[Rfam]
RNA sequence: GUGAUAUUCAAACUGGGGGCUCUUUUGUUUCUUGGAAGAAAAGUGCCGCCAGGCUUUGAGUGUUAC
Numbered sequence: 001g002u003g004a005u006a007u008u009c010a011a012a013c014u015g016g017g018g019g020c021u022c023u024u025u026u027g028u029u030u031c032u033u034g035g036a037a038g039a040a041a042a043g044u045g046c047c048g049c050c051a052g053g054c055u056u057u058g059a060g061u062g063u064u065a066c
Stems, first nucleotide, its partner, number of pairs: 004063009013052004018047003022043005
RNA: mir-290 microRNA precursor family
Organism: Cricetulus griseus